[Rfam]
RNA sequence: AAGAGAAAAGCCAAACCCAUUGUAAAGUGGGGACGGAAAGCCACGGGUCUUUGAGGAGACAGCCGGGUUGCCUUGG
Numbered sequence: 001a002a003g004a005g006a007a008a009a010g011c012c013a014a015a016c017c018c019a020u021u022g023u024a025a026a027g028u029g030g031g032g033a034c035g036g037a038a039a040g041c042c043a044c045g046g047g048u049c050u051u052u053g054a055g056g057a058g059a060c061a062g063c064c065g066g067g068u069u070g071c072c073u074u075g076g
Stems, first nucleotide, its partner, number of pairs: 003073001011036002016031006034062001039069004044065003047060003
RNA: c-di-GMP-I-GGC riboswitch aptamer
Organism: Desulforhabdus amnigena